Rfam assigns this 449-nucleotide part of an RNA from Halobacterium salinarum to the family "Archaeal large subunit ribosomal RNA". Pairs were carried over by alignment from the consensus structure, which is taken from published work. Lineage of the source: Archaea > Methanobacteriati > Methanobacteriota > Halobacterium > Halobacterium salinarum NRC-34001.
RNA sequence: CCAACCGAAACAUGUCGAAGCAUGACCUCUGCCGAGGUAGUUCGUGGGGUAGAGCGACCGAUUGGGGAGUUCAACUCCGAGAGGAGUUGUCUCCCCUGUCAAACUCCAAACCUACGGACGCCGUCGACGCAGGGAAUCCGGUGUGCGGGGUAAGCCUGUGCACCGUGAGGGAGACAACCCAGAGUUAGGUUAAGGUCCCAAAGUGCGAGCUAAGUGCGAUUGAAGGUGGUCUCGAGCCCUAGACAGCCGGGAGGUGAGCUUAGAAGCAGCUACCCUCUAAGAAAAGCGUAACAGCUUACCGGCCGAGGUUCGAGGCGCCCAAAAUGAUCGGGGCUCAAGUUCGCCACCGAGACCUAACGGCACGGGUAACACCGUGAUCCAGUAGGUUGGCAUUCUGUUCGGGUGGAAGCUCGGGUGAGAACUCGAGUGGACCGAGUGGAAAAGAAAAU
Numbered sequence: 001c002c003a004a005c006c007g008a009a010a011c012a013u014g015u016c017g018a019a020g021c022a023u024g025a026c027c028u029c030u031g032c033c034g035a036g037g038u039a040g041u042u043c044g045u046g047g048g049g050u051a052g053a054g055c056g057a058c059c060g061a062u063u064g065g066g067g068a069g070u071u072c073a074a075c076u077c078c079g080a081g082a083g084g085a086g087u088u089g090u091c092u093c094c095c096c097u098g099u100c101a102a103a104c105u106c107c108a109a110a111c112c113u114a115c116g117g118a119c120g121c122c123g124u125c126g127a128c129g130c131a132g133g134g135a136a137u138c139c140g141g142u143g144u145g146c147g148g149g150g151u152a153a154g155c156c157u158g159u160g161c162a163c164c165g166u167g168a169g170g171g172a173g174a175c176a177a178c179c180c181a182g183a184g185u186u187a188g189g190u191u192a193a194g195g196u197c198c199c200a201a202a203g204u205g206c207g208a209g210c211u212a213a214g215u216g217c218g219a220u221u222g223a224a225g226g227u228g229g230u231c232u233c234g235a236g237c238c239c240u241a242g243a244c245a246g247c248c249g250g251g252a253g254g255u256g257a258g259c260u261u262a263g264a265a266g267c268a269g270c271u272a273c274c275c276u277c278u279a280a281g282a283a284a285a286g287c288g289u290a291a292c293a294g295c296u297u298a299c300c301g302g303c304c305g306a307g308g309u310u311c312g313a314g315g316c317g318c319c320c321a322a323a324a325u326g327a328u329c330g331g332g333g334c335u336c337a338a339g340u341u342c343g344c345c346a347c348c349g350a351g352a353c354c355u356a357a358c359g360g361c362a363c364g365g366g367u368a369a370c371a372c373c374g375u376g377a378u379c380c381a382g383u384a385g386g387u388u389g390g391c392a393u394u395c396u397g398u399u400c401g402g403g404u405g406g407a408a409g410c411u412c413g414g415g416u417g418a419g420a421a422c423u424c425g426a427g428u429g430g431a432c433c434g435a436g437u438g439g440a441a442a443a444g445a446a447a448a449u
Stems, first nucleotide, its partner, number of pairs: 001390006011024005027134006036122003040119008052107001053105002060100003064096006073088006140164009169180003184358007194348003203345001205344006225319003229316010246303005252276003257271003277281001282297001286295002359380002361376005391444001393441010409428008
Rfam's curators put it in the seed alignment.